[Rfam]
RNA sequence: CUUUCCCUGUCUAACACCAGUACCUUCCGAGGCAGUGUAGCGCUCUGGCAUUUUCAGGGGAUAGAGUACUGGGCUCUCUUCCCUCCCCACUGGACAGUGUUCCACCUGGGGCCUAAAGAGAAGCCAACAGU
Numbered sequence: 001c002u003u004u005c006c007c008u009g010u011c012u013a014a015c016a017c018c019a020g021u022a023c024c025u026u027c028c029g030a031g032g033c034a035g036u037g038u039a040g041c042g043c044u045c046u047g048g049c050a051u052u053u054u055c056a057g058g059g060g061a062u063a064g065a066g067u068a069c070u071g072g073g074c075u076c077u078c079u080u081c082c083c084u085c086c087c088c089a090c091u092g093g094a095c096a097g098u099g100u101u102c103c104a105c106c107u108g109g110g111g112c113c114u115a116a117a118g119a120g121a122a123g124c125c126a127a128c129a130g131u
Stems, first nucleotide, its partner, number of pairs: 003061007017048004024040002027037001072125003077120001085111005091104004

Shown here is a 131-nucleotide RNA from Megalops atlanticus, a member of the family "Small nucleolar RNA SNORA49". Pairs were carried over by alignment from the consensus structure, which was predicted with RNAalifold. Its family is annotated with RNA processing and nucleolus in the Gene Ontology.